[Rfam]
RNA: MIR168 microRNA precursor family
RNA sequence: UUACCGGCGGUCUCUAAUUCGCUUGGUGCAGGUCGGGAACUGAUUAGCUUCGCUUGCAUAUGUACGUAUAUGUUUUCUCCUUAUUAUGCCAGAUGGCAAGUCUUGAUUGGUUGAGAUCGGACAGAAGCGAAUUGGAUCCCGCCUUGCAUCAACUGAAUCGGAGACCGCGGUGAAG
Numbered sequence: 001u002u003a004c005c006g007g008c009g010g011u012c013u014c015u016a017a018u019u020c021g022c023u024u025g026g027u028g029c030a031g032g033u034c035g036g037g038a039a040c041u042g043a044u045u046a047g048c049u050u051c052g053c054u055u056g057c058a059u060a061u062g063u064a065c066g067u068a069u070a071u072g073u074u075u076u077c078u079c080c081u082u083a084u085u086a087u088g089c090c091a092g093a094u095g096g097c098a099a100g101u102c103u104u105g106a107u108u109g110g111u112u113g114a115g116a117u118c119g120g121a122c123a124g125a126a127g128c129g130a131a132u133u134g135g136a137u138c139c140c141g142c143c144u145u146g147c148a149u150c151a152a153c154u155g156a157a158u159c160g161g162a163g164a165c166c167g168c169g170g171u172g173a174a175g
Stems, first nucleotide, its partner, number of pairs: 013162002017158004023152010034141005040135006